[Rfam]
RNA: Plastid-psbN 5UTR RNA
Organism: Rubidibacter lacunae
RNA sequence: UGAAAACCGCCAUGAGCGGGGUAGUCCCCCAACCUGGGGCUACUUUUCCGUACUCCGAAUUC
Numbered sequence: 001u002g003a004a005a006a007c008c009g010c011c012a013u014g015a016g017c018g019g020g021g022u023a024g025u026c027c028c029c030c031a032a033c034c035u036g037g038g039g040c041u042a043c044u045u046u047u048c049c050g051u052a053c054u055c056c057g058a059a060u061u062c
Base pairs, nucleotide, nucleotide: 018046019045020044021043022042023041024040025039026038027037028036